RNA sequence: CGGGAUAUAUUCCCGUAGGGAUGUGAUUCGUUAAACCGAUGAAUUGAACCAUGAA
Numbered sequence: 001c002g003g004g005a006u007a008u009a010u011u012c013c014c015g016u017a018g019g020g021a022u023g024u025g026a027u028u029c030g031u032u033a034a035a036c037c038g039a040u041g042a043a044u045u046g047a048a049c050c051a052u053g054a055a
Base pairs, nucleotide, nucleotide: 001015002014003013004012005011018050019049025045026044027043028042029041030040031039032038
Notes: eL15-Euryarchaeota ribosomal protein leader: a 55-nucleotide sequence from Methanosalsum zhilinae. Lineage of the source: Archaea > Methanobacteriati > Methanobacteriota > Methanomicrobia > Methanosalsum zhilinae. The sequence is in the family's curated seed alignment.